[Rfam]
RNA: U1 spliceosomal RNA
RNA sequence: AUAUUUCCCUGCCAGAGGAGAUGUCAUGAUCACGAUGGUGGCUCUCCCAGGACAAGGCAGAUCUAUUGAAGUCUGGAUGUGCUGACCCCUGCGGUUUACUCAAACGGGGGAAACGCAGCUGCAUAAUUUGUGGAAGUGAAGGACUGUAUUUGCAUUUUCCUGUG
Numbered sequence: 001a002u003a004u005u006u007c008c009c010u011g012c013c014a015g016a017g018g019a020g021a022u023g024u025c026a027u028g029a030u031c032a033c034g035a036u037g038g039u040g041g042c043u044c045u046c047c048c049a050g051g052a053c054a055a056g057g058c059a060g061a062u063c064u065a066u067u068g069a070a071g072u073c074u075g076g077a078u079g080u081g082c083u084g085a086c087c088c089c090u091g092c093g094g095u096u097u098a099c100u101c102a103a104a105c106g107g108g109g110g111a112a113a114c115g116c117a118g119c120u121g122c123a124u125a126a127u128u129u130g131u132g133g134a135a136g137u138g139a140a141g142g143a144c145u146g147u148a149u150u151u152g153c154a155u156u157u158u159c160c161u162g163u164g
Stems, first nucleotide, its partner, number of pairs: 013121003017047005023042005049090003056083003061078004093116001095113001096111002099109002138163001140161004146155002